[Rfam]
RNA sequence: GCCUUUUCAUCCGAAACGGUGUCAUUCCAGUGCCCAGACACUGGAAUCCAGAAAACUUAACUUUAUACCAGGUAAUAAGAACUGGAUCCCAGUGUCUGGGCACUGGGAUGACAGUGCGCCGUAGAAA
Numbered sequence: 001g002c003c004u005u006u007u008c009a010u011c012c013g014a015a016a017c018g019g020u021g022u023c024a025u026u027c028c029a030g031u032g033c034c035c036a037g038a039c040a041c042u043g044g045a046a047u048c049c050a051g052a053a054a055a056c057u058u059a060a061c062u063u064u065a066u067a068c069c070a071g072g073u074a075a076u077a078a079g080a081a082c083u084g085g086a087u088c089c090c091a092g093u094g095u096c097u098g099g100g101c102a103c104u105g106g107g108a109u110g111a112c113a114g115u116g117c118g119c120c121g122u123a124g125a126a127a
Stems, first nucleotide, its partner, number of pairs: 010126001012124001014122001020113016037096008046087006
RNA: Wolbachia sRNA 46
Organism: Trichonephila clavata